[Rfam]
RNA sequence: ACCAUCCUUUUGUUGGGGUUGCGCUCCUGUCCAAUGAGCACAUAGUGAGGGCCGUACUGCUAGUGCCUAAACCACACACUUGCAUCAACUAGAGCUUUGCUCUACCUUGGUACAAUUUUUGGAAAA
Numbered sequence: 001a002c003c004a005u006c007c008u009u010u011u012g013u014u015g016g017g018g019u020u021g022c023g024c025u026c027c028u029g030u031c032c033a034a035u036g037a038g039c040a041c042a043u044a045g046u047g048a049g050g051g052c053c054g055u056a057c058u059g060c061u062a063g064u065g066c067c068u069a070a071a072c073c074a075c076a077c078a079c080u081u082g083c084a085u086c087a088a089c090u091a092g093a094g095c096u097u098u099g100c101u102c103u104a105c106c107u108u109g110g111u112a113c114a115a116u117u118u119u120u121g122g123a124a125a126a
Stems, first nucleotide, its partner, number of pairs: 006018004021060003027054001029052004038046002082113001084111004090104006
Dot-bracket structure: .....((((.....))))..(((...(.((((.....((.....))..)))).)...))).....................(.((((..((((((...))))))...)))).).............
The record is a 126-nucleotide RNA sequence from Aotus nancymaae, which matches "U4atac minor spliceosomal RNA" in Rfam. Rfam's curators write: U4atac is an essential component of the minor U12-type spliceosome complex which is required for removal of the rarer class of eukaryotic introns (AT-AC, U12-type). On this family, see Davila Lopez et al., Nucleic Acids Res 2008: "Computational screen for spliceosomal RNA genes aids in defining the phylogenetic distribution of major and minor spliceosomal components". Rfam links the family to the GO terms U4atac snRNP, pre-mRNA 5'-splice site binding and spliceosomal tri-snRNP complex assembly. It is annotated as a spliceosomal small nuclear RNA. A search with the family's covariance model found it, with a score of 95 bits. Clan: U4 clan. The source organism's lineage runs through Eukaryota, Bilateria, Deuterostomia, Simiiformes and Aotus.